This 585-nucleotide part of an RNA from Lacticaseibacillus saniviri belongs to the Rfam family "Bacterial small subunit ribosomal RNA".
A search with the family's covariance model found it, with a score of 1622 bits.
Its Rfam clan is "SSU clan".
The family has 99 seed sequences and 42,628 matches in Rfam 15.1.
RNA sequence: UGACGGGGGCCCGCACAAGCGGUGGAGCAUGUGGUUUAAUUCGAAGCAACGCGAAGAACCUUACCAGGUCUUGACAUCUUCUGCUAUUCUAAGAGAUUAGAAGUUCCCUUCGGGGACAGAAUGACAGGUGGUGCAUGGUUGUCGUCAGCUCGUGUCGUGAGAUGUUGGGUUAAGUCCCGCAACGAGCGCAACCCUUAUGACUAGUUGCCAGCAUUAAGUUGGGCACUCUAAUCAGACUGCCGGUGACAAACCGGAGGAAGGUGGGGAUGACGUCAAAUCAUCAUGCCCCUUAUGACCUGGGCUACACACGUGCUACAAUGGAUGGUACAACGAGUCGCAAAACCGCGAGGUUAAGCUAAUCUCUUAAAGCCAUUCUCAGUCCGGACUGUAGGCUGCAACUCGCCUACACGAAGUCGGAAUCGCUAGUAAUCGCGGAUCAGCAUGCCGCGGUGAAUACGUUCCCGGGCCUUGUACACACCGCCCGUCACACCAUGAGAGUUUGUAACACCCGAAGCCGGUGGGGUAACCUUUUAGGAGCUAGCCGUCUAAGGUGGGACAGAUGAUUAGGGUGAAGUCGUAACAAGG
Numbered sequence: 001u002g003a004c005g006g007g008g009g010c011c012c013g014c015a016c017a018a019g020c021g022g023u024g025g026a027g028c029a030u031g032u033g034g035u036u037u038a039a040u041u042c043g044a045a046g047c048a049a050c051g052c053g054a055a056g057a058a059c060c061u062u063a064c065c066a067g068g069u070c071u072u073g074a075c076a077u078c079u080u081c082u083g084c085u086a087u088u089c090u091a092a093g094a095g096a097u098u099a100g101a102a103g104u105u106c107c108c109u110u111c112g113g114g115g116a117c118a119g120a121a122u123g124a125c126a127g128g129u130g131g132u133g134c135a136u137g138g139u140u141g142u143c144g145u146c147a148g149c150u151c152g153u154g155u156c157g158u159g160a161g162a163u164g165u166u167g168g169g170u171u172a173a174g175u176c177c178c179g180c181a182a183c184g185a186g187c188g189c190a191a192c193c194c195u196u197a198u199g200a201c202u203a204g205u206u207g208c209c210a211g212c213a214u215u216a217a218g219u220u221g222g223g224c225a226c227u228c229u230a231a232u233c234a235g236a237c238u239g240c241c242g243g244u245g246a247c248a249a250a251c252c253g254g255a256g257g258a259a260g261g262u263g264g265g266g267a268u269g270a271c272g273u274c275a276a277a278u279c280a281u282c283a284u285g286c287c288c289c290u291u292a293u294g295a296c297c298u299g300g301g302c303u304a305c306a307c308a309c310g311u312g313c314u315a316c317a318a319u320g321g322a323u324g325g326u327a328c329a330a331c332g333a334g335u336c337g338c339a340a341a342a343c344c345g346c347g348a349g350g351u352u353a354a355g356c357u358a359a360u361c362u363c364u365u366a367a368a369g370c371c372a373u374u375c376u377c378a379g380u381c382c383g384g385a386c387u388g389u390a391g392g393c394u395g396c397a398a399c400u401c402g403c404c405u406a407c408a409c410g411a412a413g414u415c416g417g418a419a420u421c422g423c424u425a426g427u428a429a430u431c432g433c434g435g436a437u438c439a440g441c442a443u444g445c446c447g448c449g450g451u452g453a454a455u456a457c458g459u460u461c462c463c464g465g466g467c468c469u470u471g472u473a474c475a476c477a478c479c480g481c482c483c484g485u486c487a488c489a490c491c492a493u494g495a496g497a498g499u500u501u502g503u504a505a506c507a508c509c510c511g512a513a514g515c516c517g518g519u520g521g522g523g524u525a526a527c528c529u530u531u532u533a534g535g536a537g538c539u540a541g542c543c544g545u546c547u548a549a550g551g552u553g554g555g556a557c558a559g560a561u562g563a564u565u566a567g568g569g570u571g572a573a574g575u576c577g578u579a580a581c582a583a584g585g
Base pairs, nucleotide, nucleotide: 001475002474003472004471005470007469008468009467010466011465012464013463015459016458019423020422021421022420023419024316026314027313028312029311030310031309032308033307034305035304040055041054042053043052064300065299066298067297068296069295070294077124078123079121080120081119082118083117087102088101089100090099091098092097105116106115107114108113127289128288130287131286132285133284136283137282138278139277140276141274143272144271148187149186150185151184152183153182154163155162156161166179167178168177169176193266194265195264196263198234199233200232202230203229204228208223209222212221213220237257238256240254241253242252243251244250320375321374322373323372324371325370326369332363333362334361337356338355342351343350344349382413387408388407389406390405391404392403393402429451430450431449432448433447434446435445478584480581483577484576488571489570490569491568493566494565495564498561499560500559501558502557503556506553507552508551509550514546516544517543518542519541522539523538524537527535528534